Overview:
Rfam assigns this 86-nucleotide RNA sequence from Massilia sp. BSC265 to the family "c-di-GMP-I riboswitch aptamer".
[Rfam]
RNA sequence: GACUGAAAAAGGCAAACCGUGCGAAAGCACGGGACGCAAAGUCACGGUCUACCGGGUUGAUGCCCCAUGACGGCGGGACUGCCAGA
Numbered sequence: 001g002a003c004u005g006a007a008a009a010a011g012g013c014a015a016a017c018c019g020u021g022c023g024a025a026a027g028c029a030c031g032g033g034a035c036g037c038a039a040a041g042u043c044a045c046g047g048u049c050u051a052c053c054g055g056g057u058u059g060a061u062g063c064c065c066c067a068u069g070a071c072g073g074c075g076g077g078a079c080u081g082c083c084a085g086a
Stems, first nucleotide, its partner, number of pairs: 012037002017032006040080004045075002047071003054065004

A search with the family's covariance model found it, with a score of 73 bits.
Gene Ontology term of the family: cyclic-di-GMP binding.